[Rfam]
RNA sequence: UGAUGUCAUGGCAAUCUGGCUGAGACAUCUGUCACCCCACUGAUUGCCAGGGUUGAUUCAGCUGAUCUGGCUGGUUAGGCAGGUGUCCCCUUUCUCCCUCACUGUUCCAUGUGCUUCCAUCCUGAAGCUGUACACUCAGUCAAAGAGGAAAACCUUCCCUGAUAGAGGAGUACCAUUCAUCCUUCAAUGGUAUAUGGAUUUUUUUGUUUCUUUCUUUGUUUUUUUCCCAGGCCUUCAAGACCACAGAGGAAUUCUGGAGGAAGGAAUUUUUUACCUCAGUU
Numbered sequence: 001u002g003a004u005g006u007c008a009u010g011g012c013a014a015u016c017u018g019g020c021u022g023a024g025a026c027a028u029c030u031g032u033c034a035c036c037c038c039a040c041u042g043a044u045u046g047c048c049a050g051g052g053u054u055g056a057u058u059c060a061g062c063u064g065a066u067c068u069g070g071c072u073g074g075u076u077a078g079g080c081a082g083g084u085g086u087c088c089c090c091u092u093u094c095u096c097c098c099u100c101a102c103u104g105u106u107c108c109a110u111g112u113g114c115u116u117c118c119a120u121c122c123u124g125a126a127g128c129u130g131u132a133c134a135c136u137c138a139g140u141c142a143a144a145g146a147g148g149a150a151a152a153c154c155u156u157c158c159c160u161g162a163u164a165g166a167g168g169a170g171u172a173c174c175a176u177u178c179a180u181c182c183u184u185c186a187a188u189g190g191u192a193u194a195u196g197g198a199u200u201u202u203u204u205u206g207u208u209u210c211u212u213u214c215u216u217u218g219u220u221u222u223u224u225u226c227c228c229a230g231g232c233c234u235u236c237a238a239g240a241c242c243a244c245a246g247a248g249g250a251a252u253u254c255u256g257g258a259g260g261a262a263g264g265a266a267u268u269u270u271u272u273a274c275c276u277c278a279g280u281u
Base pairs, nucleotide, nucleotide: 002107003106005102006101008099010097011096013093014092018090019089024087025086026085027084028083029082030081031080032079033078035074036073037070038069039068042067043066044065045064046062047061117170118168120166121165122139123138124137125136127135140162141161142160147158148157149156201266202265203264207263208262210260211259212258213257214256222251223250224249225248227246231244
Rfam assigns this 281-nucleotide RNA from Ceyx cyanopectus to the family "7SK RNA". The match comes from Rfam's covariance-model search (180 bits). Its Rfam clan is "7SK clan". 7SK was discovered as an abundant small nuclear RNA in the mid-70s but a possible function has only recently been suggested. The family's consensus secondary structure is taken from published work. The family's RNA type in Rfam is non-coding RNA gene. Rfam 15.1 lists 49,373 matches to the family in 668 species.